[Rfam]
RNA sequence: AUUUUUAUCCGAUUUUCUUACGUGAUAAAAAACCGAAUUUGAGAACUUAAUGUAGCUUAAUAAGAAUUGUGGGGAACCAAUGUUUUUCUUAUUUUGUCUGCGGCUCAAUAAAGCGAUUGCAGUUUCUGCAAUCAUAUUUUUAACCCAAAGAAAAGUAGUGCAAACAAUAUGA
Numbered sequence: 001a002u003u004u005u006u007a008u009c010c011g012a013u014u015u016u017c018u019u020a021c022g023u024g025a026u027a028a029a030a031a032a033c034c035g036a037a038u039u040u041g042a043g044a045a046c047u048u049a050a051u052g053u054a055g056c057u058u059a060a061u062a063a064g065a066a067u068u069g070u071g072g073g074g075a076a077c078c079a080a081u082g083u084u085u086u087u088c089u090u091a092u093u094u095u096g097u098c099u100g101c102g103g104c105u106c107a108a109u110a111a112a113g114c115g116a117u118u119g120c121a122g123u124u125u126c127u128g129c130a131a132u133c134a135u136a137u138u139u140u141u142a143a144c145c146c147a148a149a150g151a152a153a154a155g156u157a158g159u160g161c162a163a164a165c166a167a168u169a170u171g172a
Stems, first nucleotide, its partner, number of pairs: 002031008013020001039108005051102005058091003062087006070079003113161002115133008136156006
Dot-bracket structure: .((((((((...(......)...)))))))).......(((((.......(((((..(((.((((((..(((....)))..)))))).)))......))))).)))))....((((((((((...))))))))..((((((.........))))))...))...........
The record is a 172-nucleotide sequence from Pasteurellaceae bacterium 15-036681, which matches "nqrA-II ncRNA motif" in Rfam. It scores 117 bits against the family's covariance model. The literature on the family includes a 2024 paper in Nucleic Acids Res by Narunsky et al., "The discovery of novel noncoding RNAs in 50 bacterial genomes". Rfam classes the family as a cis-regulatory element.